This 87-nucleotide RNA from Triticum urartu belongs to the Rfam family "MIR1120/MIR1122 microRNA precursor family".
For this family Rfam cites "Cloning and characterization of microRNAs from wheat (Triticum aestivum L.)" (Yao et al., Genome Biol, 2007).
The base pairs follow the family's consensus structure, which was predicted with RNAalifold.

RNA sequence: CUACUCCCUCCGUCCCAAAAUAUAAGAACAUUUUUAACACUAACAUAGUAUCAAAAACGUUCUUAUAUUCUGGGACAGAGGGAGUAC
Number, nucleotide and partner (000 for none) at each position: 001c000002u000003a085004c084005u083006c000007c081008c080009u079010c078011c000012g000013u075014c074015c073016c072017a071018a000019a069020a068021u067022a066023u065024a064025a063026g062027a061028a060029c059030a000031u057032u056033u055034u054035u053036a000037a051038c000039a049040c048041u047042a000043a000044c000045a000046u000047a041048g040049u039050a000051u037052c000053a035054a034055a033056a032057a031058c000059g029060u028061u027062c026063u025064u024065a023066u022067a021068u020069u019070c000071u017072g016073g015074g014075a013076c000077a000078g010079a009080g008081g007082g000083a005084g004085u003086a000087c000